A member of the RNA family "SL2 RNA" from Oesophagostomum dentatum, 107 nucleotides long. Rfam describes the family as follows. This family represents SL2 RNA. SL2 RNA is involved in trans splicing in lower eukaryotes. Its family is annotated with mRNA trans splicing, via spliceosome in the Gene Ontology. The family's RNA type in Rfam is non-coding RNA gene.
[Rfam]
RNA sequence: GGUUUUAACUCAGUAUCACAAGGUACUAAGGGUGUCUGACCUACUUUAGGGUUGCGUCACAAACCAUAAUUUUUGGAUCGCCUUCGCGGGGUAUCCGGGAGGGCAAA
Numbered sequence: 001g002g003u004u005u006u007a008a009c010u011c012a013g014u015a016u017c018a019c020a021a022g023g024u025a026c027u028a029a030g031g032g033u034g035u036c037u038g039a040c041c042u043a044c045u046u047u048a049g050g051g052u053u054g055c056g057u058c059a060c061a062a063a064c065c066a067u068a069a070u071u072u073u074u075g076g077a078u079c080g081c082c083u084u085c086g087c088g089g090g091g092u093a094u095c096c097g098g099g100a101g102g103g104c105a106a107a
Base pairs, nucleotide, nucleotide: 007035008033009030010029013026014025015024017023037059038058039057040056041054043052044051045050083105085103087101090096091095